Shown here is a 42-nucleotide sequence from Mystacornis crossleyi, a member of the family "Histone 3' UTR stem-loop". NCBI's taxonomy places the organism under Eukaryota, Metazoa, Archelosauria, Archosauria, Mystacornis. From the family's description: The mRNAs of metazoan histone genes lack a poly-A tail. 3' end processing occurs at a site between a highly conserved stem-loop (modelled by this family) and a purine rich region around 20 nts downstream (the histone downstream element, or HDE). The stem-loop is bound by a 31 kDa stem-loop binding protein (SLBP - also termed the histone hairpin binding protein, or HBP). Together with U7 snRNA binding of the HDE, SLBP binding nucleate s the formation of the processing complex. The histone 3' UTR stem-loop is also involved in nucleocytoplasmic transport of the mRNA, and in stability regulation and translation efficiency in the cytoplasm. Gene Ontology term of the family: mRNA 3'-end processing by stem-loop binding and cleavage. The family's consensus secondary structure is taken from published work.
RNA sequence: AAGGCUCUUUUAAGAGCCACCCAUAUAUUCAGUAAAAGAGUC
Numbered sequence: 001a002a003g004g005c006u007c008u009u010u011u012a013a014g015a016g017c018c019a020c021c022c023a024u025a026u027a028u029u030c031a032g033u034a035a036a037a038g039a040g041u042c
Base pairs, nucleotide, nucleotide: 003018004017005016006015007014008013